[Rfam]
Nucleotides: 078
Base pairs, nucleotide, nucleotide: 001078003075004074011036012035016031017030018029019028020027021026034064039071040070041069042068044067045066046065047062048061049060
Number, partner (000 for none) and nucleotide at each position: 001078c002000u003075c004074g005000a006000a007000a008000a009000a010000g011036g012035c013000a014000a015000a016031c017030c018029g019028a020027u021026g022000g023000u024000g025000a026021c027020a028019u029018c030017g031016g032000g033000a034064c035012g036011c037000a038000a039071a040070g041069u042068c043000u044067c045066c046065g047062g048061c049060c050000u051000u052000g053000g054000u055000u056000g057000c058000a059000a060049g061048g062047u063000a064034g065046c066045g067044g068042g069041g070040c071039u072000a073000c074004c075003g076000a077000a078001g